A member of the RNA family "L31-Actinobacteria ribosomal protein leader" from Streptomyces minutiscleroticus, 48 nucleotides long. The base pairs follow the family's consensus structure, which is taken from published work. Rfam classes the family as a cis-regulatory leader.
RNA sequence: CCGGUCCCGGUUCACGCUCCCGCAUCCCGCGGUCUGCGACCCGGUGCC
Numbered sequence: 001c002c003g004g005u006c007c008c009g010g011u012u013c014a015c016g017c018u019c020c021c022g023c024a025u026c027c028c029g030c031g032g033u034c035u036g037c038g039a040c041c042c043g044g045u046g047c048c
Stems, first nucleotide, its partner, number of pairs: 003048003007044004015038003020032004